Small nucleolar RNA Z103: a 94-nucleotide sequence from Panicum hallii. It scores 98 bits against the family's covariance model. NCBI's taxonomy places the organism under Eukaryota, Embryophyta, Poales, Panicinae, Panicum hallii. Rfam classes the family as a C/D-box small nucleolar RNA. The family has 12 seed sequences and 2,844 matches in Rfam 15.1. Pairs were carried over by alignment from the consensus structure, which was predicted with PFOLD.
RNA sequence: GAGGAAAUGAUGAUCCUUUCCCCAGAUGAUCGACACUGAACAUACUGUGCUAUAAAACUUCUCUUCGGAGAACCAAGCCAGAAUUCUGAUCCUU
Numbered sequence: 001g002a003g004g005a006a007a008u009g010a011u012g013a014u015c016c017u018u019u020c021c022c023c024a025g026a027u028g029a030u031c032g033a034c035a036c037u038g039a040a041c042a043u044a045c046u047g048u049g050c051u052a053u054a055a056a057a058c059u060u061c062u063c064u065u066c067g068g069a070g071a072a073c074c075a076a077g078c079c080a081g082a083a084u085u086c087u088g089a090u091c092c093u094u
Stems, first nucleotide, its partner, number of pairs: 001094005